[Rfam]
RNA sequence: CCCUUCCUUUAAAAAGCACCUCACUUGGAACUAAAACCAUGAUCACUUCAGAUUUCAUGGCCUAGCCAUUGAUCUGUUGUGAUCACUGGAGUAGUUAGGACAGUGAUGGUUGUCAAAGGAAGGAGAGAGAGGCAAUGUUAAUGGGUGAGACAGGAGAGGACCUCUUUCUUAAUGUCCACUGUUCUUGGUUCUCAAUCCACAUUGCAACACU
Number, nucleotide and partner (000 for none) at each position: 001c000002c000003c000004u000005u000006c000007c000008u000009u000010u000011a000012a000013a000014a000015a000016g000017c000018a000019c109020c108021u000022c105023a104024c103025u102026u000027g000028g101029a000030a000031c098032u097033a096034a095035a000036a000037c089038c088039a000040u085041g084042a083043u082044c081045a080046c079047u000048u000049c000050a000051g000052a000053u000054u000055u000056c000057a000058u000059g000060g000061c000062c000063u000064a000065g000066c000067c000068a000069u000070u000071g000072a000073u000074c000075u000076g000077u000078u000079g046080u045081g044082a043083u042084c041085a040086c000087u000088g038089g037090a000091g000092u000093a000094g000095u034096u033097a032098g031099g000100a000101c028102a025103g024104u023105g022106a000107u000108g020109g019110u000111u000112g000113u000114c000115a000116a000117a000118g000119g000120a000121a000122g000123g000124a000125g000126a000127g000128a000129g000130a000131g000132g205133c204134a203135a202136u201137g200138u199139u000140a000141a000142u000143g000144g000145g000146u000147g000148a000149g000150a000151c000152a000153g182154g000155a180156g000157a000158g177159g176160a175161c000162c000163u000164c000165u000166u000167u000168c000169u000170u000171a000172a000173u000174g000175u160176c159177c158178a000179c000180u155181g000182u153183u000184c000185u000186u000187g000188g000189u000190u000191c000192u000193c000194a000195a000196u000197c000198c000199a138200c137201a136202u135203u134204g133205c132206a000207a000208c000209a000210c000211u000
The record is a 211-nucleotide RNA sequence from Pocillopora damicornis, which matches "Small nucleolar RNA SNORA81" in Rfam. Gene Ontology terms of the family: nucleolus and RNA processing. Taxonomically the source falls in Pocillopora (Eukaryota, Opisthokonta, Hexacorallia, Scleractinia).